[Rfam]
RNA: mir-9256 microRNA precursor family
Organism: Pipistrellus kuhlii
RNA sequence: AUUUACACUGAGUGGCCAGAUCAUUAUGAUCUAUGAACACAUAAUGAUCUGGCCACUCAUUGUAUAU
Numbered sequence: 001a002u003u004u005a006c007a008c009u010g011a012g013u014g015g016c017c018a019g020a021u022c023a024u025u026a027u028g029a030u031c032u033a034u035g036a037a038c039a040c041a042u043a044a045u046g047a048u049c050u051g052g053c054c055a056c057u058c059a060u061u062g063u064a065u066a067u
Stems, first nucleotide, its partner, number of pairs: 004064004009059009019049010